[Rfam]
RNA sequence: AAUAUCGUGAGGUAUUGUCUGAAGGAGACGUGGUAGUCGAGAGGCCCAUAGGCGGACUAGCAGACCGAAAUGCAGAGGAGUGAAGCACAAGUGGCGGGGUAAACUGACGACUAUGCGAAAAUAAUGGGAAGUCAUUAAUUUUAAUUCAAUGAAUCAGCCGAAUUGAAAUAGUUUAUCAUGUGAAAGUGCUCGGUAUGUUAGGAAGGAAAGUGCG
Numbered sequence: 001a002a003u004a005u006c007g008u009g010a011g012g013u014a015u016u017g018u019c020u021g022a023a024g025g026a027g028a029c030g031u032g033g034u035a036g037u038c039g040a041g042a043g044g045c046c047c048a049u050a051g052g053c054g055g056a057c058u059a060g061c062a063g064a065c066c067g068a069a070a071u072g073c074a075g076a077g078g079a080g081u082g083a084a085g086c087a088c089a090a091g092u093g094g095c096g097g098g099g100u101a102a103a104c105u106g107a108c109g110a111c112u113a114u115g116c117g118a119a120a121a122u123a124a125u126g127g128g129a130a131g132u133c134a135u136u137a138a139u140u141u142u143a144a145u146u147c148a149a150u151g152a153a154u155c156a157g158c159c160g161a162a163u164u165g166a167a168a169u170a171g172u173u174u175a176u177c178a179u180g181u182g183a184a185a186g187u188g189c190u191c192g193g194u195a196u197g198u199u200a201g202g203a204a205g206g207a208a209a210g211u212g213c214g
Stems, first nucleotide, its partner, number of pairs: 001016006045214001047212003053206001057201005063196001064194005085189004094181003098177007105134004111127004

The family of this 214-nucleotide RNA from Alkaliphilus pronyensis is "Group II catalytic intron D1-D4-3". The base pairs follow the family's consensus structure. Taxonomically the source falls in Alkaliphilus (Bacteria, Bacillota, Clostridia, Peptostreptococcales).